[Rfam]
RNA: Glutamine riboswitch aptamer (glnA leader)
RNA sequence: UACGUUCAGCCGAGAGGCCGGAAGUAGACUUCAUUAUUAGUCGAAGGAACGCAUU
Numbered sequence: 001u002a003c004g005u006u007c008a009g010c011c012g013a014g015a016g017g018c019c020g021g022a023a024g025u026a027g028a029c030u031u032c033a034u035u036a037u038u039a040g041u042c043g044a045a046g047g048a049a050c051g052c053a054u055u
Stems, first nucleotide, its partner, number of pairs: 003051005009018003021052001027042003